Source information
This 128-nucleotide RNA sequence from Jaculus jaculus belongs to the Rfam family "Small nucleolar RNA SNORA72". Its family is annotated with nucleolus and RNA processing in the Gene Ontology.

Nucleotides: 128
Stems, first nucleotide, its partner, number of pairs: 003054001016043002020040004025035002062121001064119002067117002078105004083100003087096001
Number, partner (000 for none) and nucleotide at each position: 001000u002000u003054g004000c005000a006000a007000a008000u009000a010000u011000u012000c013000u014000u015000g016043u017042u018000u019000u020040u021039c022038u023037g024000a025035u026034u027000u028000u029000g030000u031000g032000a033000u034026a035025a036000c037023c038022a039021g040020a041000c042017a043016g044000g045000c046000u047000u048000a049000a050000c051000a052000u053000u054003c055000u056000g057000g058000a059000c060000a061000g062121a063000a064119c065118a066000u067117g068116c069000a070000c071000c072000u073000a074000a075000u076000c077000c078105c079104c080103a081102g082000u083100c084099c085098u086000u087096g088000u089000u090000c091000u092000u093000u094000c095000c096087c097000c098085a099084g100083g101000u102081c103080u104079g105078g106000u107000u108000u109000u110000a111000u112000a113000a114000a115000u116068g117067c118065u119064g120000g121062u122000g123000g124000u125000a126000a127000c128000c
Rfam describes the family as follows. U72 is a member of the H/ACA class of snoRNAs. The snoRNA gene is located in intron 4 of the ribosomal L30 protein gene in human, mouse and chicken. The family has 29 seed sequences and 1,541 matches in Rfam 15.1. A search with the family's covariance model found it, with a score of 78 bits. Rfam classes the family as an H/ACA-box small nucleolar RNA.